Background:
Shown here is a 37-nucleotide sequence from Oreochromis aureus, a member of the family "CRISPR RNA direct repeat element". The family has 3 seed sequences and 36 matches in Rfam 15.1. The source organism's lineage runs through Eukaryota, Deuterostomia, Chordata, Eurypterygia and Oreochromis.
[Rfam]
RNA sequence: GUAACAAUUUUCUACAAGGCUAAUGAAUUUUGCUACU
Numbered sequence: 001g002u003a004a005c006a007a008u009u010u011u012c013u014a015c016a017a018g019g020c021u022a023a024u025g026a027a028u029u030u031u032g033c034u035a036c037u
Stems, first nucleotide, its partner, number of pairs: 001036003005032003010027003